[Rfam]
A member of the RNA family "THF (Tetrahydrofolate) riboswitch aptamer" from Treponema pedis, 94 nucleotides long. Taxonomically the source falls in Treponema pedis (Bacteria, Spirochaetota, Treponematales, Treponemataceae). Pairs were carried over by alignment from the consensus structure, which is taken from published work. Tetrahydrofolate (THF) riboswitch was first reported for Ames et al. as an RNA motif in 5' untranslated (5'-UTR)regions of folate transport and biosynthesis genes in Firmicutes genomes. The literature on the family includes a 2010 paper in Chem Biol by Ames et al., "A eubacterial riboswitch class that senses the coenzyme tetrahydrofolate".
RNA sequence: UACAGAGUAGGUAUACCGCGUUAAGUAUCCGCAGAUGGGACGUCGCUGCGGAGCGAAAUGAUUUUUCAUGCGGUGGUUUACCGCUUCCGCUGUA
Numbered sequence: 001u002a003c004a005g006a007g008u009a010g011g012u013a014u015a016c017c018g019c020g021u022u023a024a025g026u027a028u029c030c031g032c033a034g035a036u037g038g039g040a041c042g043u044c045g046c047u048g049c050g051g052a053g054c055g056a057a058a059u060g061a062u063u064u065u066u067c068a069u070g071c072g073g074u075g076g077u078u079u080a081c082c083g084c085u086u087c088c089g090c091u092g093u094a
Stems, first nucleotide, its partner, number of pairs: 001094005010082004015077004019072003025054002028052007038088003042084001058069004